Notes
Shown here is a 75-nucleotide sequence from Clunio marinus, a member of the family "mir-932 microRNA precursor family". The match comes from Rfam's covariance-model search (56 bits). Lineage of the source: Eukaryota > Panarthropoda > Diptera > Orthocladiinae > Clunio. Rfam links the family to the GO terms miRNA-mediated post-transcriptional gene silencing and RISC complex.

RNA sequence: UUUAUCUUCAAUUCCGUAGUGCAUUUGCAGUGUGAAGUAUAACGACUGCAAACACGGCGGAAGUGAAGAUAAAUU
Numbered sequence: 001u002u003u004a005u006c007u008u009c010a011a012u013u014c015c016g017u018a019g020u021g022c023a024u025u026u027g028c029a030g031u032g033u034g035a036a037g038u039a040u041a042a043c044g045a046c047u048g049c050a051a052a053c054a055c056g057g058c059g060g061a062a063g064u065g066a067a068g069a070u071a072a073a074u075u
Base pairs, nucleotide, nucleotide: 006068007067008066009065010064013061014060015059016058017057020054021053025051026050027049028048029047
Dot-bracket structure: .....(((((..(((((..((...(((((.................))))).))..)))))..))))).......